Shown here is a 172-nucleotide RNA sequence from Klebsiella pneumoniae, a member of the family "sok antitoxin (CssrC)". Rfam 15.1 lists 305 matches to the family in 167 species. Rfam classes the family as an antitoxin RNA. From the family's description: Also identified in Shigella as CssrC. It scores 107 bits against the family's covariance model. Taxonomically the source falls in Klebsiella pneumoniae subsp. pneumoniae (Bacteria, Pseudomonadati, Pseudomonadota, Klebsiella).
[Rfam]
RNA sequence: UGGCGCUUGAGGCUUUUUGCCUCAUGACGUGAAGGUGGUUUGUUACCGUGUUGUGUGGCAAAAAGCAGAAAGCCCCGUAGUUAAUUUUCAUUAACCCACGAGGCCACCUGUAUGCCUAGACAACAUCAGGAUAGCCUCUUAGAUGCCGCAAGGCAAGGAGAAGAAGGCCAUG
Numbered sequence: 001u002g003g004c005g006c007u008u009g010a011g012g013c014u015u016u017u018u019g020c021c022u023c024a025u026g027a028c029g030u031g032a033a034g035g036u037g038g039u040u041u042g043u044u045a046c047c048g049u050g051u052u053g054u055g056u057g058g059c060a061a062a063a064a065g066c067a068g069a070a071a072g073c074c075c076c077g078u079a080g081u082u083a084a085u086u087u088u089c090a091u092u093a094a095c096c097c098a099c100g101a102g103g104c105c106a107c108c109u110g111u112a113u114g115c116c117u118a119g120a121c122a123a124c125a126u127c128a129g130g131a132u133a134g135c136c137u138c139u140u141a142g143a144u145g146c147c148g149c150a151a152g153g154c155a156a157g158g159a160g161a162a163g164a165a166g167g168c169c170a171u172g
Base pairs, nucleotide, nucleotide: 002075003074005073006072007071008070012066013065014064015063016062017061018060019059020058021057023055026052027051028050029049030048031047077099078098080095081094082093083092084091085090100138101137102136103135104134106132108130109129112126113125114124144162146160